The family of this 218-nucleotide sequence from Chara braunii is "Group I catalytic intron". The literature on the family includes a 1990 paper in Annu Rev Biochem by Cech, "Self-splicing of group I introns". The family's consensus secondary structure is taken from published work. It scores 87 bits against the family's covariance model. Rfam 15.1 lists 5,602 matches to the family in 1,395 species.
[Rfam]
RNA sequence: GGGCGGAUGCCUUAUCUGGGGCACUUACACAGUAAUGUUAAAGGCAAAUCUGGCUAUAUGCUGAAACCUCCGCCGAGUAUCCAAUAAUGAAUGCGUCGGUGCGGACAAUCAGCAGGGAAGGAAGUCUAAGACCGUAAAGCCUCAACGACUGCACGCCAGACAUCCCAUAUAUAUAAGAUGGGAUGAUGAUACAGUCUGAACUUCCAGGCGACUGGAAG
Numbered sequence: 001g002g003g004c005g006g007a008u009g010c011c012u013u014a015u016c017u018g019g020g021g022c023a024c025u026u027a028c029a030c031a032g033u034a035a036u037g038u039u040a041a042a043g044g045c046a047a048a049u050c051u052g053g054c055u056a057u058a059u060g061c062u063g064a065a066a067c068c069u070c071c072g073c074c075g076a077g078u079a080u081c082c083a084a085u086a087a088u089g090a091a092u093g094c095g096u097c098g099g100u101g102c103g104g105a106c107a108a109u110c111a112g113c114a115g116g117g118a119a120g121g122a123a124g125u126c127u128a129a130g131a132c133c134g135u136a137a138a139g140c141c142u143c144a145a146c147g148a149c150u151g152c153a154c155g156c157c158a159g160a161c162a163u164c165c166c167a168u169a170u171a172u173a174u175a176a177g178a179u180g181g182g183a184u185g186a187u188g189a190u191a192c193a194g195u196c197u198g199a200a201c202u203u204c205c206a207g208g209c210g211a212c213u214g215g216a217a218g
Base pairs, nucleotide, nucleotide: 005025008023009022010021011020012019013018029038030037031036049160050159051158052157054155059114060113061112062111063110064109069105070104071103072102073101115141116140145197147196148195149194150193151192163183164182165181166180167179168178170176203216204215205214206213207212
Gene Ontology term of the family: Group I intron splicing.